U7 small nuclear RNA: a 61-nucleotide RNA sequence from Varanus komodoensis.
Animal histone pre-mRNAs are spliced by a different mechanism than nuclear pre-mRNAs and self-splicing introns.
[Rfam]
RNA sequence: UAGUGAUUUCAGCUCUUUUUGUAUUUGUCUAGUAGGCUUUUGGCUUUAGUGAAAAGCCCAA
Numbered sequence: 001u002a003g004u005g006a007u008u009u010c011a012g013c014u015c016u017u018u019u020u021g022u023a024u025u026u027g028u029c030u031a032g033u034a035g036g037c038u039u040u041u042g043g044c045u046u047u048a049g050u051g052a053a054a055a056g057c058c059c060a061a
Base pairs, nucleotide, nucleotide: 035058036057037056038055039054040053041052043050044049
Background:
It scores 58 bits against the family's covariance model.